Overview: RNase MRP: a 469-nucleotide RNA sequence from Sclerotinia borealis. Rfam describes the family as follows. RNase MRP is an enzymatically active ribonucleoprotein with two distinct roles in eukaryotes. In mitochondria it plays a direct role in the initiation of mitochondrial DNA replication. In the nucleus it is involved in precursor rRNA processing, where it cleaves the internal transcribed spacer 1 between 18S and 5.8S rRNAs. Despite distinct functions, RNase MRP has been shown to be evolutionarily related to RNase P. Like eukaryotic RNase P, RNase MRP is not catalytically active without associated protein subunits. By type it is a ribozyme. A search with the family's covariance model found it, with a score of 110 bits. Rfam links the family to the GO terms ribonuclease MRP activity, ribonuclease MRP complex and rRNA processing. Pairs were carried over by alignment from the consensus structure, which is taken from published work.

[Rfam]
RNA sequence: UUCUCGCUCAAAGAAUCGCAUUCGAAGCACACAAACAGAAAUAUCUUUAUUGAUGUUUCAAUUCACAUUCAUGCUUUGGGAGAAAGUCCCCGGACACCCUACUUUUUAAAAGUUAGGAUUGCGGAAACGCGUCGCCAUAGAAGCACUUGCGGCUUCUCUUCUACCAACUCUUUUAUCUUCAUUUCAUACAUCCUACUACCGAUUGUACUAUUACCUGGACGCUUCUUGACGAUUGAGUUCGGAGCAUGGAAGACCACAUGGAUGAAGAUAUGAGUCCGAGCUUCUUUGCGAUGUUUUCACUUCGACUUGAAGAAGAUGAGUGAUAAGAGGUGGAAGGUAUGUUCCUGAUUGAGAUGGGGAGUGCUAAUGGUAGAAGAGGCUUUUUCGUCGAGAUCGAUAGUUAUGCGAUUGCUUUCUUUUGCUGCAAAGCUGGGAAGGUAACUCGAUGGGGCUUAUUCUUGAUGCGAGG
Dot-bracket structure: .((((((((((..((((((..(((((((.........(((((((........))))))).............)))))).)...[[[.[[[[............................((((....))))..................................................................................................................................................(((...((((.(...(((............(.((.....................................)).)................))).).)))).)))......................)))))).((((((...............)))))).........]]]]]]]....)))).))))))